[Rfam]
A member of the RNA family "mir-320 microRNA precursor family" from Saimiri boliviensis, 76 nucleotides long. A search with the family's covariance model found it, with a score of 56 bits. For this family Rfam cites "Many novel mammalian microRNA candidates identified by extensive cloning and RAKE analysis" (Berezikov et al., Genome Res, 2006). Gene Ontology terms of the family: negative regulation of gene expression, cellular response to glucose stimulus and positive regulation of stem cell proliferation. The family's consensus secondary structure was predicted with RNAalifold. NCBI's taxonomy places the organism under Eukaryota, Chordata, Simiiformes, Cebidae, Saimiri boliviensis.

RNA sequence: GUUGAGACUGGCCUUCUCUUCCCGGUUGUUCCCGGAGUCAGGAAAGGCUGGGUUGAAAUGGCAGGGGGGAAAAAAA
Numbered sequence: 001g002u003u004g005a006g007a008c009u010g011g012c013c014u015u016c017u018c019u020u021c022c023c024g025g026u027u028g029u030u031c032c033c034g035g036a037g038u039c040a041g042g043a044a045a046g047g048c049u050g051g052g053u054u055g056a057a058a059u060g061g062c063a064g065g066g067g068g069g070a071a072a073a074a075a076a
Stems, first nucleotide, its partner, number of pairs: 015058001017056002021052005029044004034039001